The record is a 60-nucleotide sequence from Paraburkholderia diazotrophica, which matches "Betaproteobacteria toxic small RNA" in Rfam.
A search with the family's covariance model found it, with a score of 54 bits.
A reference for the family is Kimelman et al. (2012), "A vast collection of microbial genes that are toxic to bacteria", Genome Res.
RNA sequence: CGUCUCCUCCAUAUCUCCUCGGAUAUGGCUUGAGCCCGCCAUGACGGCGGGCUUUUUUUG
Dot-bracket structure: ........(((((((......)))))))....((((((((.....)))))))).......